[Rfam]
RNA sequence: UGUAAAAACAUGAUUGAGUGCAGCGUUGGUGAAAUCAAAUUGACCAACCAACCGAGAAUUCAUCAACGCUGCACUCAAUGAUGUUUCUG
Numbered sequence: 001u002g003u004a005a006a007a008a009c010a011u012g013a014u015u016g017a018g019u020g021c022a023g024c025g026u027u028g029g030u031g032a033a034a035u036c037a038a039a040u041u042g043a044c045c046a047a048c049c050a051a052c053c054g055a056g057a058a059u060u061c062a063u064c065a066a067c068g069c070u071g072c073a074c075u076c077a078a079u080g081a082u083g084u085u086u087c088u089g
Stems, first nucleotide, its partner, number of pairs: 006086006013079016030062003
Shown here is an 89-nucleotide RNA from Jatropha curcas, a member of the family "MIR397 microRNA precursor family". Pairs were carried over by alignment from the consensus structure, which was predicted with WAR.